Shown here is a 100-nucleotide RNA sequence from Ursus americanus, a member of the family "Y RNA". Rfam classes the family as a non-coding RNA gene. Y RNAs are components of the Ro ribonucleoprotein particle (Ro RNP), in association with Ro60 and La proteins. The Y RNAs and Ro60 and La proteins are well conserved, but the function of the Ro RNP is not known. It scores 58 bits against the family's covariance model.
[Rfam]
RNA sequence: GGCUGGUCCGAGUGCGGUGGUGUUUCCAAUUAACUGAUCACAGCCAGUUACAGAUCUCUGUUCCUUCUCCACUCCUCCUGCUUCGCUUGACUAGCCUUAG
Numbered sequence: 001g002g003c004u005g006g007u008c009c010g011a012g013u014g015c016g017g018u019g020g021u022g023u024u025u026c027c028a029a030u031u032a033a034c035u036g037a038u039c040a041c042a043g044c045c046a047g048u049u050a051c052a053g054a055u056c057u058c059u060g061u062u063c064c065u066u067c068u069c070c071a072c073u074c075c076u077c078c079u080g081c082u083u084c085g086c087u088u089g090a091c092u093a094g095c096c097u098u099a100g
Base pairs, nucleotide, nucleotide: 001096002095003094004093005092006091007090008089010088011087014084016079017078019076020075022074032062033061034060036058037057